[Rfam]
RNA sequence: GUCAACAACCCACCGUUAAAUCGGAGUACCGAUUAUAACGGGGGCUGGUAAGAUAGCCCGAGUUGACCCGACUCAGGCAGGAAUGCCUACGUUAGUGGCAAGUGUUUAAGUUCUUACCUACGGAUGCGUAGCUAGUCUGUAGCUCUAAAACUCAAAAGUUAAACAGUCAUCUGGGAGGCAGUGCUUUUGAGAAAGUACCGACCACUAACAUUGUCUAAGCUAACAUUAC
Numbered sequence: 001g002u003c004a005a006c007a008a009c010c011c012a013c014c015g016u017u018a019a020a021u022c023g024g025a026g027u028a029c030c031g032a033u034u035a036u037a038a039c040g041g042g043g044g045c046u047g048g049u050a051a052g053a054u055a056g057c058c059c060g061a062g063u064u065g066a067c068c069c070g071a072c073u074c075a076g077g078c079a080g081g082a083a084u085g086c087c088u089a090c091g092u093u094a095g096u097g098g099c100a101a102g103u104g105u106u107u108a109a110g111u112u113c114u115u116a117c118c119u120a121c122g123g124a125u126g127c128g129u130a131g132c133u134a135g136u137c138u139g140u141a142g143c144u145c146u147a148a149a150a151c152u153c154a155a156a157a158g159u160u161a162a163a164c165a166g167u168c169a170u171c172u173g174g175g176a177g178g179c180a181g182u183g184c185u186u187u188u189g190a191g192a193a194a195g196u197a198c199c200g201a202c203c204a205c206u207a208a209c210a211u212u213g214u215c216u217a218a219g220c221u222a223a224c225a226u227u228a229c
Base pairs, nucleotide, nucleotide: 001067002066003065004064005063006062010044011043013041014040021032022031023030024029045056046055047054070215071214072213075088076087077086078085079084091209092208093207094206095205096204104202105201106200112149118142119141120140121139122138123137124136125135129222130221131220132219133218151191152190153189154188155187156186157185158184159183163182164181166179167178170176
The record is a 229-nucleotide RNA sequence from Coleofasciculus chthonoplastes, which matches "HNH endonuclease-associated RNA and ORF (HEARO) RNA" in Rfam.
It is one of the family's seed sequences.
The literature on the family includes a 2009 paper in Nature by Weinberg et al., "Exceptional structured noncoding RNAs revealed by bacterial metagenome analysis".